[Rfam]
RNA: iscR stability element
Organism: Klebsiella sp. RIT-PI-d
RNA sequence: AAAAAAGUUUUCUGAAUCAGGCCGGGGCGCUAUAGCUCUGCUACCGGUUAAUCCGGUUGCCUGGUUCCUUGCAUUGAUGAGUGAUGUACGGAGCUUAAGAGU
Dot-bracket structure: .........(((.(((((((((((((((......))))))..(((((.....))))).)))))))))..(.(((.........))).)..))).........